[Rfam]
RNA sequence: GUACAAAAAAUGGGGUGCCAAUGAUGGCUGAGAUUGGAUCAAUAAAGAUCCUGACCCACUGAACCUGAUACGGGUAAUGCCGGCGAAGGGAUUUUAUUGUGACGAAAG
Numbered sequence: 001g002u003a004c005a006a007a008a009a010a011u012g013g014g015g016u017g018c019c020a021a022u023g024a025u026g027g028c029u030g031a032g033a034u035u036g037g038a039u040c041a042a043u044a045a046a047g048a049u050c051c052u053g054a055c056c057c058a059c060u061g062a063a064c065c066u067g068a069u070a071c072g073g074g075u076a077a078u079g080c081c082g083g084c085g086a087a088g089g090g091a092u093u094u095u096a097u098u099g100u101g102a103c104g105a106a107a108g
Base pairs, nucleotide, nucleotide: 007095008094009093010092011058012057013056014055017028018027019026020025036051037050038049039048064089065088066087071082072081073080
RNA: TPP riboswitch aptamer (THI element)